[Rfam]
RNA sequence: AGGCCCAGAGAGAGAAGCAGGGUCUGAUUUGCAGCCUCUAUGGCAGUUGCUGAUCAGCCUUUGCUUCUUUCUCUCUCUGGG
Numbered sequence: 001a002g003g004c005c006c007a008g009a010g011a012g013a014g015a016a017g018c019a020g021g022g023u024c025u026g027a028u029u030u031g032c033a034g035c036c037u038c039u040a041u042g043g044c045a046g047u048u049g050c051u052g053a054u055c056a057g058c059c060u061u062u063g064c065u066u067c068u069u070u071c072u073c074u075c076u077c078u079g080g081g
Stems, first nucleotide, its partner, number of pairs: 008073013022059001024057006032049004